RNA sequence: UUGACAGCCCUGGAGCCUGAACCCUUCUAUUUAUCCACAGAACAGGUACGGUACAGACAGCAGCAGUGCAAGCUUGUCCCCAAUGUCUCAUCAAUGUGUCUCAACCCUGUUCUGGAGGACCCACCUAUUGAGGUGAGAAGGUAGUUCAGUCUCUUCACGCUCAGUCAAUCCUUGGCCACU
Numbered sequence: 001u002u003g004a005c006a007g008c009c010c011u012g013g014a015g016c017c018u019g020a021a022c023c024c025u026u027c028u029a030u031u032u033a034u035c036c037a038c039a040g041a042a043c044a045g046g047u048a049c050g051g052u053a054c055a056g057a058c059a060g061c062a063g064c065a066g067u068g069c070a071a072g073c074u075u076g077u078c079c080c081c082a083a084u085g086u087c088u089c090a091u092c093a094a095u096g097u098g099u100c101u102c103a104a105c106c107c108u109g110u111u112c113u114g115g116a117g118g119a120c121c122c123a124c125c126u127a128u129u130g131a132g133g134u135g136a137g138a139a140g141g142u143a144g145u146u147c148a149g150u151c152u153c154u155u156c157a158c159g160c161u162c163a164g165u166c167a168a169u170c171c172u173u174g175g176c177c178a179c180u
Stems, first nucleotide, its partner, number of pairs: 002167003007161001011157002013153003017149005024141003028138001030137006038109003048101001051099005063086003112130001114128001116126003
RNA: TUC338
Organism: Pelusios castaneus